[Rfam]
The record is a 420-nucleotide RNA sequence from Candidatus Udaeobacter sp., which matches "Bacterial RNase P class A" in Rfam.

RNA sequence: CGAUGGCAGAUGAUCGCUGGCGAGUCUCGCGUUGGCGGGACUUGCUGGAGGAAAGUCCGAACACCAUACGGCGGCAUGCCGCGUAAAAGACGCGGGCAUCACGGUUGAAAAACUGCGGUGACGGAGAGUGUCACAGAAAAGACACCGCCGGUUCUUUGGCAGCAAAGUGCAGGCAAGGGUGAAAAGGCGAGGUAAGAGCUCACCGCUCGCGGAGUAAUUCGCGAGGCAUGAAAAACCCCAUGCGGUGCAAGACAAAACAGAGGAAGGGCAGCCGGCCCGUUUGAUCCUCGGGUAUCGUCGCAUCACGGUCCCGCGACCGCGGGACUGGGCUCUCGUCCCGCGAUUGCGGGUCGGGAGAGAUAAAUGAUCAUCCCGGCUGAGAAAUUGGCCGGACAGAAUUCGGCUUAUCGCCAUCAAAAU
Numbered sequence: 001c002g003a004u005g006g007c008a009g010a011u012g013a014u015c016g017c018u019g020g021c022g023a024g025u026c027u028c029g030c031g032u033u034g035g036c037g038g039g040a041c042u043u044g045c046u047g048g049a050g051g052a053a054a055g056u057c058c059g060a061a062c063a064c065c066a067u068a069c070g071g072c073g074g075c076a077u078g079c080c081g082c083g084u085a086a087a088a089g090a091c092g093c094g095g096g097c098a099u100c101a102c103g104g105u106u107g108a109a110a111a112a113c114u115g116c117g118g119u120g121a122c123g124g125a126g127a128g129u130g131u132c133a134c135a136g137a138a139a140a141g142a143c144a145c146c147g148c149c150g151g152u153u154c155u156u157u158g159g160c161a162g163c164a165a166a167g168u169g170c171a172g173g174c175a176a177g178g179g180u181g182a183a184a185a186g187g188c189g190a191g192g193u194a195a196g197a198g199c200u201c202a203c204c205g206c207u208c209g210c211g212g213a214g215u216a217a218u219u220c221g222c223g224a225g226g227c228a229u230g231a232a233a234a235a236c237c238c239c240a241u242g243c244g245g246u247g248c249a250a251g252a253c254a255a256a257a258c259a260g261a262g263g264a265a266g267g268g269c270a271g272c273c274g275g276c277c278c279g280u281u282u283g284a285u286c287c288u289c290g291g292g293u294a295u296c297g298u299c300g301c302a303u304c305a306c307g308g309u310c311c312c313g314c315g316a317c318c319g320c321g322g323g324a325c326u327g328g329g330c331u332c333u334c335g336u337c338c339c340g341c342g343a344u345u346g347c348g349g350g351u352c353g354g355g356a357g358a359g360a361u362a363a364a365u366g367a368u369c370a371u372c373c374c375g376g377c378u379g380a381g382a383a384a385u386u387g388g389c390c391g392g393a394c395a396g397a398a399u400u401c402g403g404c405u406u407a408u409c410g411c412c413a414u415c416a417a418a419a420u
Base pairs, nucleotide, nucleotide: 002415003414004413005412006411007410008408009372010371011370012369013368014367015366017048018047019046020045021044022043023042024041025040026039027038028037029036053406054405055404057403058402059401060400061399062247063246064245065244070277071276072275074243075242076241077240078239079095080094081093082092083091096122097120098119099118100117123238124237128236129235131231132230145178146177147174148173149172151170152169154167155166156165157164158163186204187203189201190200191199205227206225207224208223209222210221211220212219213218251299252298253297254295260289261288262287263286264285269283270282271281273279306355
Notes
NCBI's taxonomy places the organism under Bacteria, Pseudomonadati, Verrucomicrobiota, Chthoniobacteraceae, Candidatus Udaeobacter.